[Rfam]
RNA sequence: AGGGGGAGGCCGGAUCCUGGGCUGUGUCUGGGUGCCCAUUGCUCCCGGGCCUGCGCUGUUGGAUUCGUGCUCCCGGCUCCUCAGCCCCCU
Numbered sequence: 001a002g003g004g005g006g007a008g009g010c011c012g013g014a015u016c017c018u019g020g021g022c023u024g025u026g027u028c029u030g031g032g033u034g035c036c037c038a039u040u041g042c043u044c045c046c047g048g049g050c051c052u053g054c055g056c057u058g059u060u061g062g063a064u065u066c067g068u069g070c071u072c073c074c075g076g077c078u079c080c081u082c083a084g085c086c087c088c089c090u
Stems, first nucleotide, its partner, number of pairs: 001090006009082001012078002016076002019073003023069004027063003031057005041050003

Shown here is a 90-nucleotide RNA sequence from Canis lupus, a member of the family "mir-8799 microRNA precursor family". It scores 73 bits against the family's covariance model. The source organism's lineage runs through Eukaryota, Eumetazoa, Bilateria, Carnivora and Canis lupus. Clan: mir-8791 microRNA precursor clan. Pairs were carried over by alignment from the consensus structure, which was predicted with RNAalifold.